Shown here is an 88-nucleotide sequence from Megamonas hypermegale, a member of the family "ZMP/ZTP riboswitch aptamer (pfl RNA motif)". It scores 62 bits against the family's covariance model. Lineage of the source: Bacteria > Bacillati > Negativicutes > Selenomonadaceae > Megamonas.
[Rfam]
Nucleotides: 088
Base pairs, nucleotide, nucleotide: 003057004056006054007053008052009051010050011049012048015045017076018075019074020073021072029042030041031040032039065083067081068080069079
Number, partner (000 for none) and nucleotide at each position: 001000u002000a003057a004056a005000c006054g007053g008052u009051a010050c011049g012048g013000a014000a015045c016000u017076g018075a019074c020073g021072g022000a023000u024000u025000u026000u027000a028000a029042g030041u031040g032039g033000a034000a035000u036000u037000a038000a039032c040031c041030a042029c043000g044000u045015g046000a047000a048012c049011c050010g051009u052008a053007c054006u055000a056004u057003u058000u059000a060000c061000a062000a063000a064000a065083a066000a067081g068080u069079c070000g071000a072021c073020c074019g075018u076017c077000u078000g079069g080068g081067c082000a083065u084000a085000a086000a087000a088000u